This 90-nucleotide RNA from Stappia albiluteola belongs to the Rfam family "Glycine riboswitch aptamer". Pairs were carried over by alignment from the consensus structure. Taxonomically the source falls in Stappia (Bacteria, Pseudomonadati, Alphaproteobacteria, Stappiaceae). It scores 74 bits against the family's covariance model.
Nucleotides: 090
Base pairs, nucleotide, nucleotide: 006085007084008083010081011080012079013078020035021034022033023032037070038069039068040066041065044064045063046062050058051057
Number, partner (000 for none) and nucleotide at each position: 001000c002000a003000a004000a005000g006085u007084u008083c009000u010081g011080c012079g013078g014000g015000a016000g017000a018000g019000g020035c021034c022033a023032g024000c025000g026000g027000a028000a029000g030000a031000g032023c033022u034021g035020g036000c037070g038069c039068c040066g041065a042000a043000g044064g045063a046062g047000c048000a049000a050058c051057c052000g053000c054000c055000c056000c057051g058050g059000a060000a061000a062046c063045u064044c065041u066040c067000a068039g069038g070037c071000a072000a073000a074000a075000g076000g077000a078013c079012c080011g081010c082000u083008g084007a085006a086000c087000a088000a089000g090000c